[Rfam]
RNA sequence: GCGCGGUGAGGUAGUAGGUUGUGUGGUUUCAGGGCAGAGAUGGUGCCACUGUGAAGAUAACUAUACAACCUACUGCCUUCCCUGC
Number, nucleotide and partner (000 for none) at each position: 001g085002c084003g083004c000005g081006g080007u000008g079009a078010g077011g076012u075013a074014g073015u072016a071017g070018g069019u068020u067021g066022u065023g064024u063025g062026g061027u060028u000029u000030c000031a000032g047033g000034g046035c045036a000037g000038a000039g000040a000041u000042g000043g000044u000045g035046c034047c032048a000049c056050u055051g000052u000053g000054a000055a050056g049057a000058u000059a000060a027061c026062u025063a024064u023065a022066c021067a020068a019069c018070c017071u016072a015073c014074u013075g012076c011077c010078u009079u008080c006081c005082c000083u003084g002085c001
The family of this 85-nucleotide sequence from Pipistrellus kuhlii is "let-7 microRNA precursor family". The literature on the family includes a 2001 paper in Nat Rev Genet by Rougvie, "Control of developmental timing in animals". The match comes from Rfam's covariance-model search (71 bits). The family is grouped with related families in Rfam's "let-7 microRNA precursor clan". Rfam's curators write: This family represents the microRNAs (miRNA) let-7 and mir-98. let-7 was identified from a study of developmental timing in C. elegans, and was later shown to be part of a much larger class of non-coding RNAs termed miRNAs. Gene Ontology terms of the family: miRNA-mediated post-transcriptional gene silencing and RISC complex.